[Rfam]
RNA: FMN riboswitch aptamer (RFN element)
Organism: Paenibacillus crassostreae
RNA sequence: UUUAUCCUUCGGGGCAGGGUGAAAUUCCCUACCGACGGUGAUGCCAUAUAAUUGAUCAUACGAAUGAAGAUGAUAUGGCUUAGUCCGUGACCCACACGCUGUUGUUUGAGGCGUAUGGUUGAUCUGGUGAAAUUCCAGGACCGACAGUAUAGUCUGGAUGGGAGAAGGAGAGC
Numbered sequence: 001u002u003u004a005u006c007c008u009u010c011g012g013g014g015c016a017g018g019g020u021g022a023a024a025u026u027c028c029c030u031a032c033c034g035a036c037g038g039u040g041a042u043g044c045c046a047u048a049u050a051a052u053u054g055a056u057c058a059u060a061c062g063a064a065u066g067a068a069g070a071u072g073a074u075a076u077g078g079c080u081u082a083g084u085c086c087g088u089g090a091c092c093c094a095c096a097c098g099c100u101g102u103u104g105u106u107u108g109a110g111g112c113g114u115a116u117g118g119u120u121g122a123u124c125u126g127g128u129g130a131a132a133u134u135c136c137a138g139g140a141c142c143g144a145c146a147g148u149a150u151a152g153u154c155u156g157g158a159u160g161g162g163a164g165a166a167g168g169a170g171a172g173c
Base pairs, nucleotide, nucleotide: 003171005169006168007167008166009165010164017029018028019027031153032152033143034142035088036087037086038085092118093117123139124138125137126136127135145156146155147154